[Rfam]
RNA sequence: AGAUCCUUUAAAUGUAGUCCAGAGAGGCUGAAAAGGUAUACGCUCAUUUUGGAGAAUGUUCUCCAUUUUAAUUCGUGAGAUACGUCUAUAUCCUUUGCCACUGUGGCAAAGGUUUUUUUGU
Numbered sequence: 001a002g003a004u005c006c007u008u009u010a011a012a013u014g015u016a017g018u019c020c021a022g023a024g025a026g027g028c029u030g031a032a033a034a035g036g037u038a039u040a041c042g043c044u045c046a047u048u049u050u051g052g053a054g055a056a057u058g059u060u061c062u063c064c065a066u067u068u069u070a071a072u073u074c075g076u077g078a079g080a081u082a083c084g085u086c087u088a089u090a091u092c093c094u095u096u097g098c099c100a101c102u103g104u105g106g107c108a109a110a111g112g113u114u115u116u117u118u119u120g121u
Stems, first nucleotide, its partner, number of pairs: 005036005015030005042073001044071001046069001050065006088116001090114001092112009
This 121-nucleotide sequence from Listeria kieliensis belongs to the Rfam family "PyrR binding site".
NCBI's taxonomy places the organism under Bacteria, Bacillota, Caryophanales, Listeriaceae, Listeria.
About the family: This family represents the PyrR binding site and terminator structure. This RNA structure is found upstream of a variety of genes involved in pyrimidine biosynthesis and transport.
Rfam links the family to the GO terms pyrimidine nucleobase transport and pyrimidine nucleobase biosynthetic process.
By type it is a cis-regulatory element.